[Rfam]
RNA: ZMP/ZTP riboswitch aptamer (pfl RNA motif)
Organism: Frisingicoccus caecimuris
RNA sequence: AUCAUAACAUAUGACUGACGGAUUUAGUGGAAGAACCACAUGAAGUAUGUUUGUAUAUUAAGCCGACCGUCUGGGCAACAGCC
Numbered sequence: 001a002u003c004a005u006a007a008c009a010u011a012u013g014a015c016u017g018a019c020g021g022a023u024u025u026a027g028u029g030g031a032a033g034a035a036c037c038a039c040a041u042g043a044a045g046u047a048u049g050u051u052u053g054u055a056u057a058u059u060a061a062g063c064c065g066a067c068c069g070u071c072u073g074g075g076c077a078a079c080a081g082c083c
Base pairs, nucleotide, nucleotide: 006051007050008049009048010047011046012045015042017071018070019069020068021067027039028038029037030036062076063075064074